[Rfam]
RNA sequence: UAAAAGACCGUGAAGAGAUGAGUAGAUAAAUUAAAUUUUUUUACAGAGAGUUUCCGUUGGUGAGAGGAAGCGAAAAAUAUUUAUUGAAAAAAGCCUCUGAGUCUUACAUUGAACCUUUAAAUAGGGGAUGAUGUAACGGGAGCUCCCGUUAAAGAGCUAGAGUAUAAUCUAUUGACUAUGCAGUUAAGAGACGUACUUGAAAAGGUUAAUAUGGUGACAUAUUGACAAACUGGGGUGGUACCACGAAGUAAUAAUCUCUCGUCCCCAAG
Numbered sequence: 001u002a003a004a005a006g007a008c009c010g011u012g013a014a015g016a017g018a019u020g021a022g023u024a025g026a027u028a029a030a031u032u033a034a035a036u037u038u039u040u041u042u043a044c045a046g047a048g049a050g051u052u053u054c055c056g057u058u059g060g061u062g063a064g065a066g067g068a069a070g071c072g073a074a075a076a077a078u079a080u081u082u083a084u085u086g087a088a089a090a091a092a093g094c095c096u097c098u099g100a101g102u103c104u105u106a107c108a109u110u111g112a113a114c115c116u117u118u119a120a121a122u123a124g125g126g127g128a129u130g131a132u133g134u135a136a137c138g139g140g141a142g143c144u145c146c147c148g149u150u151a152a153a154g155a156g157c158u159a160g161a162g163u164a165u166a167a168u169c170u171a172u173u174g175a176c177u178a179u180g181c182a183g184u185u186a187a188g189a190g191a192c193g194u195a196c197u198u199g200a201a202a203a204g205g206u207u208a209a210u211a212u213g214g215u216g217a218c219a220u221a222u223u224g225a226c227a228a229a230c231u232g233g234g235g236u237g238g239u240a241c242c243a244c245g246a247a248g249u250a251a252u253a254a255u256c257u258c259u260c261g262u263c264c265c266c267a268a269g
Stems, first nucleotide, its partner, number of pairs: 007102002015097003025085006039074003050071006105135007137148003205226007232266004243262004

T-box leader: a 269-nucleotide sequence from Tissierella sp. P1. Rfam classes the family as a cis-regulatory leader. The match comes from Rfam's covariance-model search (116 bits). Rfam's curators write: Uncharged tRNA acts as the effector for transcription antitermination of genes in the T-box leader family. Gene Ontology term of the family: tRNA binding. Taxonomically the source falls in Tissierella (Bacteria, Bacillati, Bacillota, Tissierellia).